[Rfam]
RNA sequence: UAGAAGAGUCAGGGCCAGGAGCCCCCCCUGAGCCCAGGAUAACUCUUAAAGUUGGGGAGCA
Numbered sequence: 001u002a003g004a005a006g007a008g009u010c011a012g013g014g015c016c017a018g019g020a021g022c023c024c025c026c027c028c029u030g031a032g033c034c035c036a037g038g039a040u041a042a043c044u045c046u047u048a049a050a051g052u053u054g055g056g057g058a059g060c061a
Stems, first nucleotide, its partner, number of pairs: 008040003012035004016030004022059001024057002026054001
The family of this 61-nucleotide RNA from Microtus ochrogaster is "Gag/pol translational readthrough site".
Pairs were carried over by alignment from the consensus structure, which is taken from published work.
Its family is annotated with viral translational readthrough in the Gene Ontology.
The literature on the family includes a 1990 paper in Virus Genes by ten Dam et al., "RNA pseudoknots: translational frameshifting and readthrough on viral RNAs".
Rfam classes the family as a cis-regulatory element.
It scores 71 bits against the family's covariance model.